The family of this 114-nucleotide sequence from Plesiomonas shigelloides is "Gammaprotebacteria rimP leader". The match comes from Rfam's covariance-model search (85 bits). NCBI's taxonomy places the organism under Bacteria, Pseudomonadota, Gammaproteobacteria, Enterobacteriaceae, Plesiomonas shigelloides. The base pairs follow the family's consensus structure, which is taken from published work. On this family, see Naville and Gautheret, Genome Biol 2010: "Premature terminator analysis sheds light on a hidden world of bacterial transcriptional attenuation". The family's RNA type in Rfam is cis-regulatory leader.
RNA sequence: GUCGCAAUUGCGACAAUCAGGGUCCAGUUGCUAAAAACCCCGAUUAUCUCGGGGUUUUUUGUUAUCUGCAAACGACGUCUUAGACGAUGUAACUGGGCUUUAGGCCCUUUUUUU
Numbered sequence: 001g002u003c004g005c006a007a008u009u010g011c012g013a014c015a016a017u018c019a020g021g022g023u024c025c026a027g028u029u030g031c032u033a034a035a036a037a038c039c040c041c042g043a044u045u046a047u048c049u050c051g052g053g054g055u056u057u058u059u060u061g062u063u064a065u066c067u068g069c070a071a072a073c074g075a076c077g078u079c080u081u082a083g084a085c086g087a088u089g090u091a092a093c094u095g096g097g098c099u100u101u102a103g104g105c106c107c108u109u110u111u112u113u114u
Base pairs, nucleotide, nucleotide: 034058035057036056037055038054039053040052041051042050095107096106097105098104
Dot-bracket structure: .................................(((((((((.......)))))))))....................................((((.....)))).......